[Rfam]
RNA sequence: CAUGUAAGCACGUUUUGCUUAUGUGGACACAAAUCGCGCUUACGUGGAUGCGAUUUGCUUACACAUCAGUAAAACGCGCUGACGUGG
Numbered sequence: 001c002a003u004g005u006a007a008g009c010a011c012g013u014u015u016u017g018c019u020u021a022u023g024u025g026g027a028c029a030c031a032a033a034u035c036g037c038g039c040u041u042a043c044g045u046g047g048a049u050g051c052g053a054u055u056u057g058c059u060u061a062c063a064c065a066u067c068a069g070u071a072a073a074a075c076g077c078g079c080u081g082a083c084g085u086g087g
Base pairs, nucleotide, nucleotide: 001086002085003084004083005082007080008079009078011076012075013074014073015072016071017070018069019068021066023064024063025062027060030057031056032055033054034053035052036051037050038049040047041046